[Rfam]
RNA sequence: UACAAAUCAUGCGACUGGCGGAAAUGGAGUUCACCAUGGGGAGCAUGAUUGAUGAUGAUUAUCGACCGUCUGGGUAAAUAUU
Numbered sequence: 001u002a003c004a005a006a007u008c009a010u011g012c013g014a015c016u017g018g019c020g021g022a023a024a025u026g027g028a029g030u031u032c033a034c035c036a037u038g039g040g041g042a043g044c045a046u047g048a049u050u051g052a053u054g055a056u057g058a059u060u061a062u063c064g065a066c067c068g069u070c071u072g073g074g075u076a077a078a079u080a081u082u
Base pairs, nucleotide, nucleotide: 005050006049007048008047009046010045011044012043015040016039017070018069019068020067021066024037025036026035027034059077060076061075062074063073
Rfam assigns this 82-nucleotide RNA sequence from Oceanirhabdus seepicola to the family "ZMP/ZTP riboswitch aptamer (pfl RNA motif)". The base pairs follow the family's consensus structure, which is taken from published work. The source organism's lineage runs through Bacteria, Bacillota, Clostridia, Eubacteriales and Oceanirhabdus. The match comes from Rfam's covariance-model search (61 bits).